[Rfam]
RNA: Glycine riboswitch aptamer
RNA sequence: UUACCCCACGCGGGAGAGCUCGGGUCGACCUCGGACCCGGCGCCGAAGGAGCAAAUCCUCCCCGGAACCUCUCAGGCAGAAGGACCGCGCGGGUAGA
Numbered sequence: 001u002u003a004c005c006c007c008a009c010g011c012g013g014g015a016g017a018g019c020u021c022g023g024g025u026c027g028a029c030c031u032c033g034g035a036c037c038c039g040g041c042g043c044c045g046a047a048g049g050a051g052c053a054a055a056u057c058c059u060c061c062c063c064g065g066a067a068c069c070u071c072u073c074a075g076g077c078a079g080a081a082g083g084a085c086c087g088c089g090c091g092g093g094u095a096g097a
Stems, first nucleotide, its partner, number of pairs: 006092002009089005020040007042077003045073002049071003056064001